[Rfam]
RNA sequence: GGCGGUUCUCGGGUGACACACCCCGGAAUUGGGCUUCCUUCUCUCUGGUUCUGGGUGCGUCACCCAAGAACCACC
Numbered sequence: 001g002g003c004g005g006u007u008c009u010c011g012g013g014u015g016a017c018a019c020a021c022c023c024c025g026g027a028a029u030u031g032g033g034c035u036u037c038c039u040u041c042u043c044u045c046u047g048g049u050u051c052u053g054g055g056u057g058c059g060u061c062a063c064c065c066a067a068g069a070a071c072c073a074c075c
Stems, first nucleotide, its partner, number of pairs: 002074001005071005011065007019057005025052009
RNA: mir-9223 microRNA precursor family